[Rfam]
RNA sequence: AAAACACACAUUAAUUAUCCUUAGGGUCAUAGGAUAAACACAAAAACCCUACAAAAACAAGUUAGCACACCCUAAAAUGGUUUUAGUACGAUUACUAAUCUAUGACUCUAAUACCAAUUGAUGGAAAAAACAU
Numbered sequence: 001a002a003a004a005c006a007c008a009c010a011u012u013a014a015u016u017a018u019c020c021u022u023a024g025g026g027u028c029a030u031a032g033g034a035u036a037a038a039c040a041c042a043a044a045a046a047c048c049c050u051a052c053a054a055a056a057a058c059a060a061g062u063u064a065g066c067a068c069a070c071c072c073u074a075a076a077a078u079g080g081u082u083u084u085a086g087u088a089c090g091a092u093u094a095c096u097a098a099u100c101u102a103u104g105a106c107u108c109u110a111a112u113a114c115c116a117a118u119u120g121a122u123g124g125a126a127a128a129a130a131c132a133u
Base pairs, nucleotide, nucleotide: 009123010122011121012120013119014118015117016116022110023109024108025107026106027105028104029103030102031101032100033099050088051087055082056081058079059078062075063074064073065072
MIR845_2 microRNA precursor family: a 133-nucleotide RNA sequence from Vitis vinifera. The base pairs follow the family's consensus structure, which was predicted with WAR. Lineage of the source: Eukaryota > Streptophyta > rosids > Vitales > Vitis.